[Rfam]
RNA sequence: CUAUCAGUAAGCCUUCUCUUCCCAGUUCUUCUUGGAGUCAGGAAAAGCUGGGUUGAGAGGGGUGGAAAACAAAAAA
Numbered sequence: 001c002u003a004u005c006a007g008u009a010a011g012c013c014u015u016c017u018c019u020u021c022c023c024a025g026u027u028c029u030u031c032u033u034g035g036a037g038u039c040a041g042g043a044a045a046a047g048c049u050g051g052g053u054u055g056a057g058a059g060g061g062g063u064g065g066a067a068a069a070c071a072a073a074a075a076a
Base pairs, nucleotide, nucleotide: 014059015058016057017056018055021052022051023050024049025048029044030043031042032041033040034039
Shown here is a 76-nucleotide RNA from Aotus nancymaae, a member of the family "mir-320 microRNA precursor family". The literature on the family includes a 2006 paper in Genome Res by Berezikov et al., "Many novel mammalian microRNA candidates identified by extensive cloning and RAKE analysis". The family's consensus secondary structure was predicted with RNAalifold.